The record is a 73-nucleotide RNA from Yoonia vestfoldensis, which matches "Singlet oxygen resistance RNA X" in Rfam. It scores 81 bits against the family's covariance model. The family's RNA type in Rfam is small RNA. The pairing is the family consensus, mapped onto this sequence. The organism belongs to Yoonia vestfoldensis, within Bacteria. The family has 8 seed sequences and 528 matches in Rfam 15.1. Rfam links the family to the GO term response to photooxidative stress. Rfam describes the family as follows. SorX (RSs2461)like SorY is a singlet oxygen induced sRNA that counteracts oxidative stress by targeting mRNA for a transporter in Rhodobacter.

RNA sequence: ACCCCGCCGGUGAUCGGGUUAUAUCACCACCCUCCCUGUUGGACUUGCCCGGGCCUUGUGCCCGGGCAUUUUU
Numbered sequence: 001a002c003c004c005c006g007c008c009g010g011u012g013a014u015c016g017g018g019u020u021a022u023a024u025c026a027c028c029a030c031c032c033u034c035c036c037u038g039u040u041g042g043a044c045u046u047g048c049c050c051g052g053g054c055c056u057u058g059u060g061c062c063c064g065g066g067c068a069u070u071u072u073u
Stems, first nucleotide, its partner, number of pairs: 009028006047067008